[Rfam]
RNA sequence: UCUUCAGUGAUGAUAGAUAAAGUAACUUUUGUUCUUCUGAUUCUACUGAAGACAACCAUUCUGUCAUGCGGAAGA
Numbered sequence: 001u002c003u004u005c006a007g008u009g010a011u012g013a014u015a016g017a018u019a020a021a022g023u024a025a026c027u028u029u030u031g032u033u034c035u036u037c038u039g040a041u042u043c044u045a046c047u048g049a050a051g052a053c054a055a056c057c058a059u060u061c062u063g064u065c066a067u068g069c070g071g072a073a074g075a
Stems, first nucleotide, its partner, number of pairs: 001075003005071001
RNA: Small nucleolar RNA SNORD59